[Rfam]
RNA sequence: ACUGUCGGAUUCAUCUCAAUCCACAUGUGUUGGGGUGGAUUGGAGUGGAAUUUAGUUCAAGUUCCACUCCAAUCCACCCCCAACAAAUACGGAUUGAUGCGAAUCUGACU
Numbered sequence: 001a002c003u004g005u006c007g008g009a010u011u012c013a014u015c016u017c018a019a020u021c022c023a024c025a026u027g028u029g030u031u032g033g034g035g036u037g038g039a040u041u042g043g044a045g046u047g048g049a050a051u052u053u054a055g056u057u058c059a060a061g062u063u064c065c066a067c068u069c070c071a072a073u074c075c076a077c078c079c080c081c082a083a084c085a086a087a088u089a090c091g092g093a094u095u096g097a098u099g100c101g102a103a104u105c106u107g108a109c110u
Base pairs, nucleotide, nucleotide: 004109005108006107007106008105009104010103011102012101014099016097017096018095019094020093021092022091025088026087028085029084030083031082032081035077036076037075038074039073040072041071042070043069045067046066047065